RNA sequence: GGGGCUGAUCGGUUUCGACGGUGACCUGUUCGUCGCAGGGAAGCGUGCCGAGAACGCGGAGUCCACUCGCUGACGUCCUCCGCAAAACAACAAGUGCUAAAUCUAACCGCACUGAGUUCGCUCUCGCUGCCUGAUUUCUGAUCAGGAUUAACCAGUGAGCAGCGGCUCCGUUCACUCCCUCCCGUCUUCGGGGGAUGCUGAGCGUCAUUUAGAAGACUUGCUUCAGUCGUUGACCUUCGGGGCGACUGAGGGACUUUAACCGCGGGUAUGCUCGCCAUCGGUCGUCCGCGACACAGAUGGGGGCAGAAAAACCGCCACAAGGCCAGCGGACUACGCACGUAGAAGACUGAGGGUACGGUCAUCGGACCCGGGUUCAAUUCCCGGCAGCUCCACAG
Numbered sequence: 001g002g003g004g005c006u007g008a009u010c011g012g013u014u015u016c017g018a019c020g021g022u023g024a025c026c027u028g029u030u031c032g033u034c035g036c037a038g039g040g041a042a043g044c045g046u047g048c049c050g051a052g053a054a055c056g057c058g059g060a061g062u063c064c065a066c067u068c069g070c071u072g073a074c075g076u077c078c079u080c081c082g083c084a085a086a087a088c089a090a091c092a093a094g095u096g097c098u099a100a101a102u103c104u105a106a107c108c109g110c111a112c113u114g115a116g117u118u119c120g121c122u123c124u125c126g127c128u129g130c131c132u133g134a135u136u137u138c139u140g141a142u143c144a145g146g147a148u149u150a151a152c153c154a155g156u157g158a159g160c161a162g163c164g165g166c167u168c169c170g171u172u173c174a175c176u177c178c179c180u181c182c183c184g185u186c187u188u189c190g191g192g193g194g195a196u197g198c199u200g201a202g203c204g205u206c207a208u209u210u211a212g213a214a215g216a217c218u219u220g221c222u223u224c225a226g227u228c229g230u231u232g233a234c235c236u237u238c239g240g241g242g243c244g245a246c247u248g249a250g251g252g253a254c255u256u257u258a259a260c261c262g263c264g265g266g267u268a269u270g271c272u273c274g275c276c277a278u279c280g281g282u283c284g285u286c287c288g289c290g291a292c293a294c295a296g297a298u299g300g301g302g303g304c305a306g307a308a309a310a311a312c313c314g315c316c317a318c319a320a321g322g323c324c325a326g327c328g329g330a331c332u333a334c335g336c337a338c339g340u341a342g343a344a345g346a347c348u349g350a351g352g353g354u355a356c357g358g359u360c361a362u363c364g365g366a367c368c369c370g371g372g373u374u375c376a377a378u379u380c381c382c383g384g385c386a387g388c389u390c391c392a393c394a395g
Stems, first nucleotide, its partner, number of pairs: 001391007019364008033352002036349003044339005049069004056083006123159007169204006176195002178192003184217006221251009234266003238262001269305005275300004281292003284331004368384005
Dot-bracket structure: (((((((...........((((((((......((.(((.....((((([[[[...((((((....]]]]........)))))).......................................(((((((.......................))))))).........((((((.(((((...[[[[[[))).))...)))))).......]]]]]]...(((((((((....[[[.[....)))))))))..........].]]]..(((((.((((..((([[[[..)))....)))))))))......................]]]]...))))).......))).))....))))))))...(((((.......))))))))))))....
RNA: transfer-messenger RNA